[Rfam]
RNA: Repression of heat shock gene expression (ROSE) element
RNA sequence: UACGCGAUGCCGAAUUCGGGUCGCGCAAUGAUUUACUUGCUGAUACUCAGGAGUUUAUGACCAUGACU
Numbered sequence: 001u002a003c004g005c006g007a008u009g010c011c012g013a014a015u016u017c018g019g020g021u022c023g024c025g026c027a028a029u030g031a032u033u034u035a036c037u038u039g040c041u042g043a044u045a046c047u048c049a050g051g052a053g054u055u056u057a058u059g060a061c062c063a064u065g066a067c068u
Base pairs, nucleotide, nucleotide: 001027003025004024005023006022007021008020010019011018012017031054036053037052038051040050041049042048043047